[Rfam]
RNA sequence: GUGAAAUGAUGAUGAAGUUUAUCCAUUCUCUGAGUGCAGCUUGCUCUGCCCUUCCUGUCGCGUCGAGGCUUCAGUUCUGAGGCCUCGACGUUCCGUGGCUUCUAAACACCUUCCAGGCUCCCAGUGUUCUACUGGAAGUUGUGGGGAUGUUUGGCUGGCUGCUGACUGGAACUGGACAGAGGAAGCAGAGCCAAACCCCUUUUCUAUGGGGCCUGACUCAACAAAGAAGAAUGAAACUGUCUGAUCAC
Numbered sequence: 001g002u003g004a005a006a007u008g009a010u011g012a013u014g015a016a017g018u019u020u021a022u023c024c025a026u027u028c029u030c031u032g033a034g035u036g037c038a039g040c041u042u043g044c045u046c047u048g049c050c051c052u053u054c055c056u057g058u059c060g061c062g063u064c065g066a067g068g069c070u071u072c073a074g075u076u077c078u079g080a081g082g083c084c085u086c087g088a089c090g091u092u093c094c095g096u097g098g099c100u101u102c103u104a105a106a107c108a109c110c111u112u113c114c115a116g117g118c119u120c121c122c123a124g125u126g127u128u129c130u131a132c133u134g135g136a137a138g139u140u141g142u143g144g145g146g147a148u149g150u151u152u153g154g155c156u157g158g159c160u161g162c163u164g165a166c167u168g169g170a171a172c173u174g175g176a177c178a179g180a181g182g183a184a185g186c187a188g189a190g191c192c193a194a195a196c197c198c199c200u201u202u203u204c205u206a207u208g209g210g211g212c213c214u215g216a217c218u219c220a221a222c223a224a225a226g227a228a229g230a231a232u233g234a235a236a237c238u239g240u241c242u243g244a245u246c247a248c
Stems, first nucleotide, its partner, number of pairs: 010247004017240002024233006030226002034222002039186004044181005050175002052171004058165002061090013095162006108148001110145001114141001116140004121135006188219003192215002197210002
Dot-bracket structure: .........((((...((.....((((((((..((...((((.(((((.((((((..((.(((((((((((((....)))))))))))))....((((((.......(.(...(.((((.((((((...)))))).)))))...)..)........)))))).))..))))..)).))))).)))).(((.((...((..........))...)).))).))..)).)))))).....))...)))).

A member of the RNA family "Small nucleolar RNA SNORD17" from Thamnophis sirtalis, 248 nucleotides long. The base pairs follow the family's consensus structure, which was predicted with RNAalifold. Rfam links the family to the GO terms RNA processing and nucleolus. Taxonomically the source falls in Thamnophis (Eukaryota, Opisthokonta, Sauropsida, Toxicofera). It is annotated as a C/D-box small nucleolar RNA. From the family's description: The snoRNA HBI-43 belongs to the C/D family of snoRNAs, guiding 2'O-ribose methylation at position U3797 of the 28S rRNA. Pseudouridylation in position U3797 is predicted to be guided by the H/ACA snoRNA ACA48. On this family, see Huttenhofer et al., EMBO J 2001: "RNomics: an experimental approach that identifies 201 candidates for novel, small, non-messenger RNAs in mouse".